[Rfam]
RNA sequence: ACCUGUUACGGGUCUCCAUCAGGAGGUUCACUUUUAUCCCCACGCACCUUCCUGUCUCCACCUCAGCAGGAGCCCAGUUCGAGCCUCGUGGUGUCCUUUAAUUCACUCACUUGGGUAACCAGUGAUGCUGGAGGGACCUAAGCAAUGAAUACAAUUUGACGAGGGAAGAAAUUCCGCAGUCUGGUGUUCACCAUGGGGCGGCGGCGCUGGAUUACUCUUAUUGCGGUUGGAAGGCGUGUUGGCGGGCUGGUGUAUCGACUGAUAUU
Numbered sequence: 001a002c003c004u005g006u007u008a009c010g011g012g013u014c015u016c017c018a019u020c021a022g023g024a025g026g027u028u029c030a031c032u033u034u035u036a037u038c039c040c041c042a043c044g045c046a047c048c049u050u051c052c053u054g055u056c057u058c059c060a061c062c063u064c065a066g067c068a069g070g071a072g073c074c075c076a077g078u079u080c081g082a083g084c085c086u087c088g089u090g091g092u093g094u095c096c097u098u099u100a101a102u103u104c105a106c107u108c109a110c111u112u113g114g115g116u117a118a119c120c121a122g123u124g125a126u127g128c129u130g131g132a133g134g135g136a137c138c139u140a141a142g143c144a145a146u147g148a149a150u151a152c153a154a155u156u157u158g159a160c161g162a163g164g165g166a167a168g169a170a171a172u173u174c175c176g177c178a179g180u181c182u183g184g185u186g187u188u189c190a191c192c193a194u195g196g197g198g199c200g201g202c203g204g205c206g207c208u209g210g211a212u213u214a215c216u217c218u219u220a221u222u223g224c225g226g227u228u229g230g231a232a233g234g235c236g237u238g239u240u241g242g243c244g245g246g247c248u249g250g251u252g253u254a255u256c257g258a259c260u261g262a263u264a265u266u
Base pairs, nucleotide, nucleotide: 001013002012003011018263019262020261021260022259027254029252030251031250032249037245038244040242041241042240047238049236051234052233053232060227061226062225064223065222066221068219069218070217071216072215074210075209076208077207078206079204080203081202083199084198085197086196087195088194089193090192091191093137095135096134097133098132099131101129104127105126107125108124109123110122111121113120114119138142146190147189148188149187150186151185152184156183158181159180160179165174166173167172
The record is a 266-nucleotide RNA from Stemphylium lycopersici, which matches "Fungal signal recognition particle RNA" in Rfam. A search with the family's covariance model found it, with a score of 127 bits. The family's consensus secondary structure is taken from published work. The source organism's lineage runs through Eukaryota, Opisthokonta, leotiomyceta, Pleosporineae and Stemphylium. The family has 50 seed sequences and 748 matches in Rfam 15.1.